[Rfam]
RNA sequence: AUAUUGGCUAGACUGGAGGGUUAGGGGUCCUCUGUAAGCACACACCCCCUUAGGUGUGGUCGAAAUUCAAGGGGCGACCUGUUGAUUGGAUUUAAGCCUGUAAAAUUGAUAUAGAAACUUCGUCCUACAGGAUUAAUGGUCAUAAAUCUUUAACUGGAGGGUUAAAGUUAAUUAUGUUUAUUAUGGGAAUGUGUUAGGUCUGGAAAGGAGCAGCUCUGCUAUAAACAGCUGAUGCUUGUAGAAAAACGGGGUGGAGUUGAUUUUGCAGAUUACUUACUUUUAUGAUACUUGUCCACCUUUGAAUGUGCCAUUUU
Numbered sequence: 001a002u003a004u005u006g007g008c009u010a011g012a013c014u015g016g017a018g019g020g021u022u023a024g025g026g027g028u029c030c031u032c033u034g035u036a037a038g039c040a041c042a043c044a045c046c047c048c049c050u051u052a053g054g055u056g057u058g059g060u061c062g063a064a065a066u067u068c069a070a071g072g073g074g075c076g077a078c079c080u081g082u083u084g085a086u087u088g089g090a091u092u093u094a095a096g097c098c099u100g101u102a103a104a105a106u107u108g109a110u111a112u113a114g115a116a117a118c119u120u121c122g123u124c125c126u127a128c129a130g131g132a133u134u135a136a137u138g139g140u141c142a143u144a145a146a147u148c149u150u151u152a153a154c155u156g157g158a159g160g161g162u163u164a165a166a167g168u169u170a171a172u173u174a175u176g177u178u179u180a181u182u183a184u185g186g187g188a189a190u191g192u193g194u195u196a197g198g199u200c201u202g203g204a205a206a207g208g209a210g211c212a213g214c215u216c217u218g219c220u221a222u223a224a225a226c227a228g229c230u231g232a233u234g235c236u237u238g239u240a241g242a243a244a245a246a247c248g249g250g251g252u253g254g255a256g257u258u259g260a261u262u263u264u265g266c267a268g269a270u271u272a273c274u275u276a277c278u279u280u281u282a283u284g285a286u287a288c289u290u291g292u293c294c295a296c297c298u299u300u301g302a303a304u305g306u307g308c309c310a311u312u313u314u
Stems, first nucleotide, its partner, number of pairs: 001314001003312001005310004011061004015033007038057004065304009076293003087282004093276004098268013112254001117252007125241007132233004137227002139178001141176005146169001148167008181224006191216001193214002199208003